RNA: c-di-GMP-I riboswitch aptamer
RNA sequence: UCACGCACAGGGCAAACUACUUGAAAAAGUAGGACGCAAAACUUCCGGCCUAAAUCAAUAUGUAUUAUUGGUAUGGUAGUGGGGUCGCCGAU
Numbered sequence: 001u002c003a004c005g006c007a008c009a010g011g012g013c014a015a016a017c018u019a020c021u022u023g024a025a026a027a028a029g030u031a032g033g034a035c036g037c038a039a040a041a042c043u044u045c046c047g048g049c050c051u052a053a054a055u056c057a058a059u060a061u062g063u064a065u066u067a068u069u070g071g072u073a074u075g076g077u078a079g080u081g082g083g084g085u086c087g088c089c090g091a092u
Stems, first nucleotide, its partner, number of pairs: 012037002017032006041085003045082003048077003055071006